[Rfam]
RNA sequence: AUCGCGUGGCGGGUGGGGAGGCCCUGGUGUCUCUAACCCUAAUGGUUGCUGGCGCACUCCCCGCACUCGGCCGCUGUUUUACUCGCUGACUUUCAGCGGGCGAGGGGAGUCGCCUGGGGGGGAGGGAGGUGGGGGAAGGGGCUUCCGCCGCCAUAAAAAACGUCAGCGAAGGGGCUCCUCACCCGGCCCGCACUGGGGGUCCCCAGCGCGGAGGCUCCCGCCGCCGCCUCGCCCGAAGGCCGCGGCCGGCCGGCUCCCGCCACUGCCGCCGCGAAGAGCUCGUCUCUGUCAGCCUCGGCGGCGGCCGGGAGCGAAGGGGCGCUCCUCCCCACCCCCCCGCGUACCGGGGAGACCCUAGGAGAGCAACACGGGAGCGGCGCCGCCGGGACACCCGCCGCGCCUCCCUCAGCCGUGGGGCGCGCGGCCGGCGCCGCCCCGACACGC
Numbered sequence: 001a002u003c004g005c006g007u008g009g010c011g012g013g014u015g016g017g018g019a020g021g022c023c024c025u026g027g028u029g030u031c032u033c034u035a036a037c038c039c040u041a042a043u044g045g046u047u048g049c050u051g052g053c054g055c056a057c058u059c060c061c062c063g064c065a066c067u068c069g070g071c072c073g074c075u076g077u078u079u080u081a082c083u084c085g086c087u088g089a090c091u092u093u094c095a096g097c098g099g100g101c102g103a104g105g106g107g108a109g110u111c112g113c114c115u116g117g118g119g120g121g122g123a124g125g126g127a128g129g130u131g132g133g134g135g136a137a138g139g140g141g142c143u144u145c146c147g148c149c150g151c152c153a154u155a156a157a158a159a160a161c162g163u164c165a166g167c168g169a170a171g172g173g174g175c176u177c178c179u180c181a182c183c184c185g186g187c188c189c190g191c192a193c194u195g196g197g198g199g200u201c202c203c204c205a206g207c208g209c210g211g212a213g214g215c216u217c218c219c220g221c222c223g224c225c226g227c228c229u230c231g232c233c234c235g236a237a238g239g240c241c242g243c244g245g246c247c248g249g250c251c252g253g254c255u256c257c258c259g260c261c262a263c264u265g266c267c268g269c270c271g272c273g274a275a276g277a278g279c280u281c282g283u284c285u286c287u288g289u290c291a292g293c294c295u296c297g298g299c300g301g302c303g304g305c306c307g308g309g310a311g312c313g314a315a316g317g318g319g320c321g322c323u324c325c326u327c328c329c330c331a332c333c334c335c336c337c338c339g340c341g342u343a344c345c346g347g348g349g350a351g352a353c354c355c356u357a358g359g360a361g362a363g364c365a366a367c368a369c370g371g372g373a374g375c376g377g378c379g380c381c382g383c384c385g386g387g388a389c390a391c392c393c394g395c396c397g398c399g400c401c402u403c404c405c406u407c408a409g410c411c412g413u414g415g416g417g418c419g420c421g422c423g424g425c426c427g428g429c430g431c432c433g434c435c436c437c438g439a440c441a442c443g444c
Stems, first nucleotide, its partner, number of pairs: 005190002008187001010185009020176005056110005068102002071099006085167006091160003193358006206322004214312007223302005241273005247268004252261003275287004372436001374434008395424005402417004
Shown here is a 444-nucleotide RNA from Geococcyx californianus, a member of the family "Vertebrate telomerase RNA". It scores 160 bits against the family's covariance model. It is annotated as a non-coding RNA gene. Telomerase is a ribonucleoprotein reverse transcriptase that synthesises telomeric DNA. Telomerase RNAs differ greatly in sequence and structure between vertebrates, ciliates and yeasts, but they share a 5' pseudoknot structure close to the template sequence. Vertebrate telomerase RNAs have a 3' H/ACA snoRNA-like domain. The family's consensus secondary structure is taken from published work. The literature on the family includes a 2000 paper in Cell by Chen et al., "Secondary structure of vertebrate telomerase RNA".